[Rfam]
The record is a 150-nucleotide RNA sequence from Tenebrionibacter intestinalis, which matches "Leucine operon leader" in Rfam. The family's consensus secondary structure is taken from published work. It is annotated as a cis-regulatory leader. From the family's description: At least 6 amino acid operons are known to be regulated by attenuation. In each a leader sequence of 150-200 bp is found upstream of the first gene in the operon. This leader sequence can assume two different secondary structures known as the terminator and the anti-terminator structure.
RNA sequence: UUCGAGGUUUUCUCAUGUUCAAUAUUGUUCGCCUGGCUGGCCUACUACUACUAAACGCCUUUACUGUGCGCGGUAGUCUGGUGGGCAAAGCCGAACGUUGAGAACGCCUUCCGGAAUGAUAAAAACCCGCGCCGCUGCGCGGGUUUUUUU
Numbered sequence: 001u002u003c004g005a006g007g008u009u010u011u012c013u014c015a016u017g018u019u020c021a022a023u024a025u026u027g028u029u030c031g032c033c034u035g036g037c038u039g040g041c042c043u044a045c046u047a048c049u050a051c052u053a054a055a056c057g058c059c060u061u062u063a064c065u066g067u068g069c070g071c072g073g074u075a076g077u078c079u080g081g082u083g084g085g086c087a088a089a090g091c092c093g094a095a096c097g098u099u100g101a102g103a104a105c106g107c108c109u110u111c112c113g114g115a116a117u118g119a120u121a122a123a124a125a126c127c128c129g130c131g132c133c134g135c136u137g138c139g140c141g142g143g144u145u146u147u148u149u150u
Stems, first nucleotide, its partner, number of pairs: 004110001006108003010104001012102004016097003025088009048076005056070003122147011